Shown here is a 77-nucleotide RNA from Tetraodon nigroviridis, a member of the family "Small nucleolar RNA SNORD53/SNORD92". Rfam's curators put it in the seed alignment. For this family Rfam cites "RNomics: an experimental approach that identifies 201 candidates for novel, small, non-messenger RNAs in mouse" (Huttenhofer et al., EMBO J, 2001). The base pairs follow the family's consensus structure. Rfam 15.1 lists 2,250 matches to the family in 671 species. Rfam classes the family as a C/D-box small nucleolar RNA.

[Rfam]
RNA sequence: CGGGAUGAUGACCCACAGUGGUUUCGCUCAUUGGCCUGAGCCCCAGUGAUGUCACUUCCUCUUGGCUGUCUGACCUG
Dot-bracket structure: ((((.....................................................................))))